[Rfam]
A member of the RNA family "Bacterial large subunit ribosomal RNA" from Rheinheimera sp. D18, 439 nucleotides of a longer RNA. A search with the family's covariance model found it, with a score of 2864 bits.
RNA sequence: CUCCUCGAAAGCUAUUUAGGUAGCGCCUCGAGCGAAUACCAUUGGGGGUAGAGCACUGUUUGGGCUAGGGGGUCAUCCCGACUUACCAACCCCAUGCAAACUCCGAAUACCAAUGAGUACUACUCGGGAGACACACGGCGGGUGCUAACGUCCGUCGUGGAAAGGGAAACAACCCAGACCGCCAGCUAAGGUCCCAAAGUAAUGAUUAAGUGGAAAACGAUGUGGGAAGGCAUAGACAGCUAGGAGGUUGGCUUAGAAGCAGCCAUUCUUUAAAGAAAGCGUAAUAGCUCACUAGUCGAGUCGGCCUGCGCGGAAGAUGUAACGGGGCUAAAUCAUUCACCGAAGCUGCGGACUUGUGCUUGCACAAGUGGUAGAGGAGCGUUCUGUAAGCCGUUGAAGGUAGACCGGGAGGUUUGCUGGAGGUAUCAGAAGUGCGAAU
Numbered sequence: 001c002u003c004c005u006c007g008a009a010a011g012c013u014a015u016u017u018a019g020g021u022a023g024c025g026c027c028u029c030g031a032g033c034g035a036a037u038a039c040c041a042u043u044g045g046g047g048g049u050a051g052a053g054c055a056c057u058g059u060u061u062g063g064g065c066u067a068g069g070g071g072g073u074c075a076u077c078c079c080g081a082c083u084u085a086c087c088a089a090c091c092c093c094a095u096g097c098a099a100a101c102u103c104c105g106a107a108u109a110c111c112a113a114u115g116a117g118u119a120c121u122a123c124u125c126g127g128g129a130g131a132c133a134c135a136c137g138g139c140g141g142g143u144g145c146u147a148a149c150g151u152c153c154g155u156c157g158u159g160g161a162a163a164g165g166g167a168a169a170c171a172a173c174c175c176a177g178a179c180c181g182c183c184a185g186c187u188a189a190g191g192u193c194c195c196a197a198a199g200u201a202a203u204g205a206u207u208a209a210g211u212g213g214a215a216a217a218c219g220a221u222g223u224g225g226g227a228a229g230g231c232a233u234a235g236a237c238a239g240c241u242a243g244g245a246g247g248u249u250g251g252c253u254u255a256g257a258a259g260c261a262g263c264c265a266u267u268c269u270u271u272a273a274a275g276a277a278a279g280c281g282u283a284a285u286a287g288c289u290c291a292c293u294a295g296u297c298g299a300g301u302c303g304g305c306c307u308g309c310g311c312g313g314a315a316g317a318u319g320u321a322a323c324g325g326g327g328c329u330a331a332a333u334c335a336u337u338c339a340c341c342g343a344a345g346c347u348g349c350g351g352a353c354u355u356g357u358g359c360u361u362g363c364a365c366a367a368g369u370g371g372u373a374g375a376g377g378a379g380c381g382u383u384c385u386g387u388a389a390g391c392c393g394u395u396g397a398a399g400g401u402a403g404a405c406c407g408g409g410a411g412g413u414u415u416g417c418u419g420g421a422g423g424u425a426u427c428a429g430a431a432g433u434g435c436g437a438a439u
Base pairs, nucleotide, nucleotide: 001379002378003377004376005375006374011024012023013022014021015020026130027128028127029126030125031124032123036121040115041114042113043112044111045110051104052102053101057098058097059096061094062093063092064091068087069086070084071083072082073081074080134159135158136157137156138155139154140153141152142151143150164175165174166173179351180350181349182348184347185346186345190341191340192339199338201337202336203335204334205333206332218312219311222309223308224307225306226305229302230301231300239296240295241294242293243292245269246268247267250264251263252262270274275290279288280287352369353368354367355366356365357364358363380434382431383430384429385428386427390424391423392422399418400417401416402415403414404413405412406411